Rfam assigns this 81-nucleotide RNA sequence from Myotis brandtii to the family "mir-574 microRNA precursor family". Its Rfam clan is "mir-574 microRNA precursor clan". Lineage of the source: Eukaryota > Eumetazoa > Gnathostomata > Laurasiatheria > Myotis. Pairs were carried over by alignment from the consensus structure, which was predicted with RNAalifold.
RNA sequence: AGUCCUGAAGAGAGAGACAGGGUCUGAUCCGAAGCCUCCGUGGCAGCUGUUGAUUAGCCAUUGCCUCUCUCUUUCUCUCUG
Number, nucleotide and partner (000 for none) at each position: 001a000002g000003u000004c000005c000006u000007g000008a073009a072010g071011a070012g069013a068014g067015a066016g065017a000018c063019a062020g061021g000022g059023u000024c057025u056026g055027a054028u053029c052030c000031g000032a000033a048034g047035c046036c000037u000038c000039c000040g000041u000042g000043g000044c000045a000046g035047c034048u033049g000050u000051u000052g029053a028054u027055u026056a025057g024058c000059c022060a000061u020062u019063g018064c000065c016066u015067c014068u013069c012070u011071c010072u009073u008074u000075c000076u000077c000078u000079c000080u000081g000
For this family Rfam cites "Patterns of known and novel small RNAs in human cervical cancer" (Lui et al., Cancer Res, 2007).